The family of this 125-nucleotide RNA from Thalassotalea agarivorans is "Gammaprotebacteria rimP leader". NCBI's taxonomy places the organism under Bacteria, Pseudomonadota, Gammaproteobacteria, Alteromonadales, Thalassotalea. Rfam links the family to the GO term regulation of gene expression. It scores 58 bits against the family's covariance model. The base pairs follow the family's consensus structure, which is taken from published work.
[Rfam]
RNA sequence: GGAUAGCCCGUCACACAAAGGGUUCAGUGAAAUAAAGCCCCGCGUGCAGGGGCUUUUUUGUUUCUGAAAGUGAACAUUUUAACCUUUUGAUUAGGUUUAUUCGCUGGGCUAUACGCCCUUUUUUU
Number, nucleotide and partner (000 for none) at each position: 001g000002g000003a000004u000005a000006g000007c000008c000009c000010g000011u000012c000013a000014c000015a000016c000017a000018a000019a000020g000021g000022g000023u000024u000025c000026a000027g000028u000029g000030a000031a000032a000033u000034a056035a055036a054037g053038c052039c051040c050041c049042g000043c000044g000045u000046g000047c000048a000049g041050g040051g039052g038053c037054u036055u035056u034057u000058u000059u000060g000061u000062u000063u000064c000065u000066g000067a000068a000069a000070g000071u000072g000073a000074a000075c000076a000077u000078u000079u000080u000081a000082a000083c000084c000085u000086u000087u000088u000089g000090a000091u000092u000093a000094g000095g000096u000097u000098u000099a000100u000101u000102c000103g000104c000105u000106g118107g117108g116109c115110u000111a000112u000113a000114c000115g109116c108117c107118c106119u000120u000121u000122u000123u000124u000125u000